Annotation
A member of the RNA family "Small nucleolar RNA R16" from Papaver somniferum, 89 nucleotides long. By type it is a C/D-box small nucleolar RNA. On this family, see Galardi et al., Mol Cell Biol 2002: "Purified box C/D snoRNPs are able to reproduce site-specific 2'-O-methylation of target RNA in vitro". Rfam links the family to the GO terms RNA processing and nucleolus. The organism belongs to Papaver, within Eukaryota.
[Rfam]
RNA sequence: AAAGGCAAGUGAUGAAUAAUUCUUAUCCUACACACUGAAUUUCAAUUGUGUUGAAUACAAACAUCUCAAACUUACUUUCUGAUGCCUUG
Numbered sequence: 001a002a003a004g005g006c007a008a009g010u011g012a013u014g015a016a017u018a019a020u021u022c023u024u025a026u027c028c029u030a031c032a033c034a035c036u037g038a039a040u041u042u043c044a045a046u047u048g049u050g051u052u053g054a055a056u057a058c059a060a061a062c063a064u065c066u067c068a069a070a071c072u073u074a075c076u077u078u079c080u081g082a083u084g085c086c087u088u089g
Stems, first nucleotide, its partner, number of pairs: 003087005
Dot-bracket structure: ..(((((...........................................................................)))))..